[Rfam]
Rfam assigns this 259-nucleotide RNA sequence from Schizosaccharomyces octosporus to the family "Nuclear RNase P". The organism belongs to Schizosaccharomyces, within Eukaryota. A reference for the family is Frank and Pace (1998), "Ribonuclease P: unity and diversity in a tRNA processing ribozyme", Annu Rev Biochem. Clan: RNaseP clan. By type it is a ribozyme. The family has 116 seed sequences and 3,848 matches in Rfam 15.1.
RNA sequence: UACGGACAAACGCCGCACUUCCUCAAAUUCAGACGCACUUUUACAAGUGUUACGCGCAUUGAGGGGGUAAGGUCGGAGGAACUUCUUCGUUGCAUGCUCGUGAGGAGCGGAGGACGAAAGUCCUGCCGGGUGUACCAGAAAUUCGAUCUCUUGGUUCGUCCUUUGAGAUCUUGAAACGCACCCGAGAAGAUGUCUUUUAGUGCAAUGUGCGGCACCUGUGAAAAGUCAGGCAACUCGAUUCCGACUAAUCUUGUCUGUA
Number, nucleotide and partner (000 for none) at each position: 001u259002a258003c257004g256005g000006a000007c253008a252009a251010a000011c000012g213013c212014c211015g210016c209017a208018c207019u000020u065021c064022c063023u062024c061025a000026a000027a000028u000029u000030c000031a000032g000033a000034c000035g000036c049037a048038c047039u046040u045041u000042u000043a000044c000045a040046a039047g038048u037049g036050u000051u000052a000053c000054g000055c000056g000057c000058a000059u000060u000061g024062a023063g022064g021065g020066g000067g000068u000069a000070a000071g000072g000073u000074c243075g242076g241077a240078g239079g000080a000081a000082c000083u000084u000085c189086u188087u187088c186089g000090u000091u000092g000093c000094a000095u109096g108097c107098u106099c105100g000101u000102g000103a000104g000105g099106a098107g097108c096109g095110g000111a124112g123113g122114a121115c120116g000117a000118a000119a000120g115121u114122c113123c112124u111125g000126c000127c184128g183129g182130g181131u180132g179133u000134a000135c000136c000137a000138g000139a000140a000141a000142u000143u000144c000145g170146a169147u168148c000149u000150c000151u000152u000153g000154g000155u000156u000157c000158g000159u000160c000161c000162u000163u000164u000165g000166a000167g000168a147169u146170c145171u000172u000173g000174a000175a000176a000177c000178g000179c132180a131181c130182c129183c128184g127185a000186g088187a087188a086189g085190a000191u000192g000193u000194c000195u000196u000197u000198u000199a000200g000201u000202g000203c000204a000205a000206u000207g018208u017209g016210c015211g014212g013213c012214a000215c230216c229217u228218g227219u000220g000221a000222a000223a000224a000225g000226u000227c218228a217229g216230g215231c000232a000233a000234c000235u000236c000237g000238a000239u078240u077241c076242c075243g074244a000245c000246u000247a000248a000249u000250c000251u009252u008253g007254u000255c000256u004257g003258u002259a001